[Rfam]
RNA sequence: UGGUCCGUGAUGAGGAGACACUGCGCAAUCUGAGUCCUGGAGACGCGCUGAUGGCGAGUGCUCGGACUGAGGCCG
Number, nucleotide and partner (000 for none) at each position: 001u000002g074003g073004u072005c071006c000007g000008u000009g000010a000011u000012g000013a000014g000015g000016a000017g000018a000019c000020a000021c000022u000023g000024c000025g000026c000027a000028a000029u000030c000031u000032g000033a000034g000035u000036c000037c047038u000039g000040g044041a000042g000043a000044c040045g000046c000047g037048c000049u000050g000051a000052u000053g000054g000055c000056g000057a000058g000059u000060g000061c000062u000063c000064g000065g000066a000067c000068u000069g000070a000071g005072g004073c003074c002075g000

This 75-nucleotide RNA from Myotis myotis belongs to the Rfam family "small Cajal body-specific RNA 18". The literature on the family includes a 2002 paper in Mol Cell Biol by Galardi et al., "Purified box C/D snoRNPs are able to reproduce site-specific 2'-O-methylation of target RNA in vitro". scaRNAs are a specific class of small nuclear RNAs which localise to the Cajal bodies and guide the modification of RNA polymerase II transcribed spliceosomal RNAs U1, U2, U4, U5 and U12. This C/D box domain U91 (also known as U4-8) was identified by Darzacq and is predicted to guide the 2'O-ribose methylation of U4 snRNA C8. The family's consensus secondary structure was predicted with PFOLD. A search with the family's covariance model found it, with a score of 50 bits. It is annotated as a small Cajal body RNA.